[Rfam]
RNA sequence: ACAAGAAAUAAGGGGAGUCGGGAGAACCCGGCUGAGAGUAAACUACACCAAUGUUUAGACCCAUAACCUGAUCUGGAUCAUACCAGCGUAGGGAAAUAUACCAAUGGAGCA
Numbered sequence: 001a002c003a004a005g006a007a008a009u010a011a012g013g014g015g016a017g018u019c020g021g022g023a024g025a026a027c028c029c030g031g032c033u034g035a036g037a038g039u040a041a042a043c044u045a046c047a048c049c050a051a052u053g054u055u056u057a058g059a060c061c062c063a064u065a066a067c068c069u070g071a072u073c074u075g076g077a078u079c080a081u082a083c084c085a086g087c088g089u090a091g092g093g094a095a096a097u098a099u100a101c102c103a104a105u106g107g108a109g110c111a
Base pairs, nucleotide, nucleotide: 006099008097009096012062013061014060017032018031019030020029021028039057040056041055042054043053067092068091069090070089073086074085075084076083

TPP riboswitch aptamer (THI element): a 111-nucleotide sequence from Robinsoniella sp. RHS. It scores 59 bits against the family's covariance model. From the family's description: Vitamin B(1) in its active form thiamin pyrophosphate (TPP) is an essential coenzyme that is synthesised by coupling of pyrimidine and thiazole moieties in bacteria. The source organism's lineage runs through Bacteria, Bacillati, Bacillota, Lachnospiraceae and Robinsoniella.